[Rfam]
RNA sequence: GUUGUUUGAAGUCGACAAUAGAGGCAACAUAAAUGGAACUUUUCCAUACUUUAGCCUUUGGGAAGGUCUGAGAUAUGUCACCUAAUAUUGGUAUAGUUCAGCAACACGUCCAGUAAUGGAUUUGAUGGAGAACAGAAACGAAUUUUCGGUAGAUUUCAUAACCAAUGAUCAGAGGUUGUCUAUCGAAAAAUGAAACGGCUCUUUCGACAAGAAUGCUCGUUAUAAACUGGCAAUAUUGUAGCUCAAUUUGUCGGGGAGGUUAACUCUAACUCAAUUCAGACUACUCUCAAACAAC
Numbered sequence: 001g002u003u004g005u006u007u008g009a010a011g012u013c014g015a016c017a018a019u020a021g022a023g024g025c026a027a028c029a030u031a032a033a034u035g036g037a038a039c040u041u042u043u044c045c046a047u048a049c050u051u052u053a054g055c056c057u058u059u060g061g062g063a064a065g066g067u068c069u070g071a072g073a074u075a076u077g078u079c080a081c082c083u084a085a086u087a088u089u090g091g092u093a094u095a096g097u098u099c100a101g102c103a104a105c106a107c108g109u110c111c112a113g114u115a116a117u118g119g120a121u122u123u124g125a126u127g128g129a130g131a132a133c134a135g136a137a138a139c140g141a142a143u144u145u146u147c148g149g150u151a152g153a154u155u156u157c158a159u160a161a162c163c164a165a166u167g168a169u170c171a172g173a174g175g176u177u178g179u180c181u182a183u184c185g186a187a188a189a190a191u192g193a194a195a196c197g198g199c200u201c202u203u204u205c206g207a208c209a210a211g212a213a214u215g216c217u218c219g220u221u222a223u224a225a226a227c228u229g230g231c232a233a234u235a236u237u238g239u240a241g242c243u244c245a246a247u248u249u250g251u252c253g254g255g256g257a258g259g260u261u262a263a264c265u266c267u268a269a270c271u272c273a274a275u276u277c278a279g280a281c282u283a284c285u286c287u288c289a290a291a292c293a294a295c
Base pairs, nucleotide, nucleotide: 001295002294003293004292007289008288009287012254013253014252015251016250017249018248020059021058022057023056024055034046035045036044037043038042068279069278070277071276072275076209077208078207079206108121109120110119111118112117124205125204127202128201129200130199143189144188145187146186147185148184149183150182151181152180255267256266257265258264
The family of this 295-nucleotide RNA from Intoshia linei is "Nuclear RNase P". Rfam classes the family as a ribozyme. It scores 96 bits against the family's covariance model.